[Rfam]
RNA: Small nucleolar RNA U49
RNA sequence: UCCCGAUGAGGAAGCACUCCCAAAAAUUGAUAGGAAGUGCCGUAUGACACUUUAAACAGCAGUGGGUUC
Dot-bracket structure: .............((..................((((((........))))))........))......
Numbered sequence: 001u002c003c004c005g006a007u008g009a010g011g012a013a014g015c016a017c018u019c020c021c022a023a024a025a026a027u028u029g030a031u032a033g034g035a036a037g038u039g040c041c042g043u044a045u046g047a048c049a050c051u052u053u054a055a056a057c058a059g060c061a062g063u064g065g066g067u068u069c
Stems, first nucleotide, its partner, number of pairs: 014063002034053006